RNA sequence: UCAAUCAGAGGGCAAACCCGUUGAAAAGCGGGGACGCAAAGCCACCGGCCUACCGCGCGCAAGCGCCACGGCAGCGGGGUUGCCGGA
Numbered sequence: 001u002c003a004a005u006c007a008g009a010g011g012g013c014a015a016a017c018c019c020g021u022u023g024a025a026a027a028g029c030g031g032g033g034a035c036g037c038a039a040a041g042c043c044a045c046c047g048g049c050c051u052a053c054c055g056c057g058c059g060c061a062a063g064c065g066c067c068a069c070g071g072c073a074g075c076g077g078g079g080u081u082g083c084c085g086g087a
Stems, first nucleotide, its partner, number of pairs: 012037002017032006040081004045077003048072003055066004
RNA: c-di-GMP-I riboswitch aptamer